This 276-nucleotide RNA from Sciurus carolinensis belongs to the Rfam family "Mason-Pfizer monkey virus packaging signal". This family represents a group of sequences that are related to the Mason-Pfizer monkey virus (MPMV) packaging signal. For this family Rfam cites "Mutational analysis of the predicted secondary RNA structure of the Mason-Pfizer monkey virus packaging signal" (Mustafa et al., Virus Res, 2004).
RNA sequence: UGGCACCCAACAUGAGGCGUGGAUAAGGGGGAAUUUGCGAGGGAAGAGGCAUUUGAUAGUUUGGCCUAACACAGCAGAAGUCAGUUCAACAAAGACUGCCCUGGGAGCCUGCUGUGCCACUCUUAAAGGUACAGUAGCACCUAACUAUGGGACAAGAAUUAAGUAAGCAUAAAGUUUUUGUUGAGCAAUUAAAAGAAGCUUUAAAUACAUGGGGAGUAAAGCUUAAGAGUAAUGAUCUUUUUAAGUUUUUUGACCUUAUUAAGGACACCUGUCCAU
Numbered sequence: 001u002g003g004c005a006c007c008c009a010a011c012a013u014g015a016g017g018c019g020u021g022g023a024u025a026a027g028g029g030g031g032a033a034u035u036u037g038c039g040a041g042g043g044a045a046g047a048g049g050c051a052u053u054u055g056a057u058a059g060u061u062u063g064g065c066c067u068a069a070c071a072c073a074g075c076a077g078a079a080g081u082c083a084g085u086u087c088a089a090c091a092a093a094g095a096c097u098g099c100c101c102u103g104g105g106a107g108c109c110u111g112c113u114g115u116g117c118c119a120c121u122c123u124u125a126a127a128g129g130u131a132c133a134g135u136a137g138c139a140c141c142u143a144a145c146u147a148u149g150g151g152a153c154a155a156g157a158a159u160u161a162a163g164u165a166a167g168c169a170u171a172a173a174g175u176u177u178u179u180g181u182u183g184a185g186c187a188a189u190u191a192a193a194a195g196a197a198g199c200u201u202u203a204a205a206u207a208c209a210u211g212g213g214g215a216g217u218a219a220a221g222c223u224u225a226a227g228a229g230u231a232a233u234g235a236u237c238u239u240u241u242u243a244a245g246u247u248u249u250u251u252g253a254c255c256u257u258a259u260u261a262a263g264g265a266c267a268c269c270u271g272u273c274c275a276u
Stems, first nucleotide, its partner, number of pairs: 006031003013025002038046001085129002089124001094120001097119001100116001102114003135155001137153001140151004160203003163199002210252008220238002223235003261276001263274004